RNA sequence: AAGUGGGGACGACCCCACCGCUCAACCUUAUAUUGAGGACGACCUCG
Numbered sequence: 001a002a003g004u005g006g007g008g009a010c011g012a013c014c015c016c017a018c019c020g021c022u023c024a025a026c027c028u029u030a031u032a033u034u035g036a037g038g039a040c041g042a043c044c045u046c047g
Stems, first nucleotide, its partner, number of pairs: 003018006034047005
RNA: Guanidine-II riboswitch aptamer (mini-ykkC)
Organism: Paraglaciecola hydrolytica